[Rfam]
Nucleotides: 130
Base pairs, nucleotide, nucleotide: 004023005022006021007020008019032051033050034049035048036047037046038045067130068129069128070127071126074125075124076123078121079120080119084116086114087113088112089111090110092108093107094106095105096104
Number, partner (000 for none) and nucleotide at each position: 001000u002000u003000g004023c005022c006021u007020u008019a009000a010000a011000c012000u013000a014000a015000a016000g017000a018000g019008u020007a021006a022005g023004g024000a025000a026000a027000a028000u029000a030000a031000c032051u033050g034049c035048c036047u037046g038045g039000g040000u041000g042000a043000u044000g045038u046037c047036a048035g049034g050033c051032a052000u053000a054000u055000c056000a057000a058000a059000u060000u061000u062000c063000u064000u065000u066000a067130a068129g069128g070127g071126u072000u073000u074125a075124g076123g077000a078121c079120a080119c081000u082000g083000u084116u085000a086114a087113g088112g089111u090110g091000a092108c093107c094106c095105a096104u097000c098000u099000a100000c101000u102000u103000u104096g105095u106094g107093g108092g109000a110090u111089g112088c113087c114086u115000g116084a117000u118000a119080g120079u121078g122000a123076u124075c125074u126071g127070c128069c129068c130067u
The family of this 130-nucleotide sequence from Biomphalaria glabrata is "U12 minor spliceosomal RNA". Rfam 15.1 lists 2,106 matches to the family in 1,170 species. A search with the family's covariance model found it, with a score of 91 bits. NCBI's taxonomy places the organism under Eukaryota, Metazoa, Eumetazoa, Gastropoda, Biomphalaria.